A member of the RNA family "Small nucleolar RNA snR191" from Aspergillus uvarum, 247 nucleotides long.

[Rfam]
RNA sequence: UGCCAUUGCUAAGUCAAGGCUUCUCCCUGCGACCUUGUGUCGUGUUUUUCUUCCUUGGGAGUAUGUCUGUUACAGCUCUGGCAGAUUGACGCUGAUCCGCGCCGACCUUCUUUCUGAAGCUAGGCUGACUGGUUUUCGUUUUGAAUACCAGUCGUAAGGAUCAAGCUGUGUUCUGUUUUUGAGUUGAGAUCUGCUUCUACUCAACGAGUGGCCCAUAGCAGUUCUCUUAGUAACAUUUCACACAUUU
Numbered sequence: 001u002g003c004c005a006u007u008g009c010u011a012a013g014u015c016a017a018g019g020c021u022u023c024u025c026c027c028u029g030c031g032a033c034c035u036u037g038u039g040u041c042g043u044g045u046u047u048u049u050c051u052u053c054c055u056u057g058g059g060a061g062u063a064u065g066u067c068u069g070u071u072a073c074a075g076c077u078c079u080g081g082c083a084g085a086u087u088g089a090c091g092c093u094g095a096u097c098c099g100c101g102c103c104g105a106c107c108u109u110c111u112u113u114c115u116g117a118a119g120c121u122a123g124g125c126u127g128a129c130u131g132g133u134u135u136u137c138g139u140u141u142u143g144a145a146u147a148c149c150a151g152u153c154g155u156a157a158g159g160a161u162c163a164a165g166c167u168g169u170g171u172u173c174u175g176u177u178u179u180u181g182a183g184u185u186g187a188g189a190u191c192u193g194c195u196u197c198u199a200c201u202c203a204a205c206g207a208g209u210g211g212c213c214c215a216u217a218g219c220a221g222u223u224c225u226c227u228u229a230g231u232a233a234c235a236u237u238u239c240a241c242a243c244a245u246u247u
Stems, first nucleotide, its partner, number of pairs: 003081003017068004022063001023061004029043005093163005101125003105121001107119004127153007135145004168241003174235003186226004192220004197211006
Clan: SNORA74 clan. NCBI's taxonomy places the organism under Eukaryota, Fungi, Eurotiomycetes, Aspergillaceae, Aspergillus uvarum.